[Rfam]
RNA sequence: UGCGGACCCGUCAAAUUCAGUCCCUGCCUUCUCCGUGGUGGGAACUGGCCAGCCGGCUGCCCCAGCAACUCCUGUAGUCCGUGAGCCCCGUGUCCCCUCCCGUGGGACCCCCGGGGAUAAAAUCACACCGCAGACACUG
Numbered sequence: 001u002g003c004g005g006a007c008c009c010g011u012c013a014a015a016u017u018c019a020g021u022c023c024c025u026g027c028c029u030u031c032u033c034c035g036u037g038g039u040g041g042g043a044a045c046u047g048g049c050c051a052g053c054c055g056g057c058u059g060c061c062c063c064a065g066c067a068a069c070u071c072c073u074g075u076a077g078u079c080c081g082u083g084a085g086c087c088c089c090g091u092g093u094c095c096c097c098u099c100c101c102g103u104g105g106g107a108c109c110c111c112c113g114g115g116g117a118u119a120a121a122a123u124c125a126c127a128c129c130g131c132a133g134a135c136a137c138u139g
Base pairs, nucleotide, nucleotide: 002060003059004058005057018047019046020045021044023042024041025040026039027038028037074131075130077128078127086116087115088114089113090112
Overview:
This 139-nucleotide RNA sequence from Sagittarius serpentarius belongs to the Rfam family "Small nucleolar RNA SNORA5". Its Rfam clan is "SNORA5 clan". It scores 74 bits against the family's covariance model. Its family is annotated with nucleolus and RNA processing in the Gene Ontology. About the family: ACA5 is a member of the H/ACA class of snoRNA that guide the sites of modification of uridines to pseudouridines. The base pairs follow the family's consensus structure, which was predicted with RNAfold. Rfam classes the family as an H/ACA-box small nucleolar RNA.